[Rfam]
RNA: Small nucleolar RNA SNORA11
Organism: Cervus elaphus
RNA sequence: GGGGUGUGCUCAGAGCAGAAUGCCCAGAGAAUGGCUUCUCUGUUUAUAACACACCCAACAGAAACUUGGGUUUACUCCUCACAGGUGGCAGAAUACUUUGGCCUCCCUGUGACACCAUACGCUAUACAU
Numbered sequence: 001g002g003g004g005u006g007u008g009c010u011c012a013g014a015g016c017a018g019a020a021u022g023c024c025c026a027g028a029g030a031a032u033g034g035c036u037u038c039u040c041u042g043u044u045u046a047u048a049a050c051a052c053a054c055c056c057a058a059c060a061g062a063a064a065c066u067u068g069g070g071u072u073u074a075c076u077c078c079u080c081a082c083a084g085g086u087g088g089c090a091g092a093a094u095a096c097u098u099u100g101g102c103c104u105c106c107c108u109g110u111g112a113c114a115c116c117a118u119a120c121g122c123u124a125u126a127c128a129u
Stems, first nucleotide, its partner, number of pairs: 002056007013045007022035003069122001072119001082111002085104001087102001089100004